[Rfam]
RNA sequence: AUUGCAAGUUUGAGGCCACAGCAGAAGUGCUCAUAGUGAGGCCCUGUCAGAGUCCAAUGAAUCUGCAAAAUCUACU
Numbered sequence: 001a002u003u004g005c006a007a008g009u010u011u012g013a014g015g016c017c018a019c020a021g022c023a024g025a026a027g028u029g030c031u032c033a034u035a036g037u038g039a040g041g042c043c044c045u046g047u048c049a050g051a052g053u054c055c056a057a058u059g060a061a062u063c064u065g066c067a068a069a070a071u072c073u074a075c076u
Stems, first nucleotide, its partner, number of pairs: 012044001014043004020076002023073003028038002048065004053060002
RNA: Mammalian CPEB3 ribozyme
Organism: Crocodylus porosus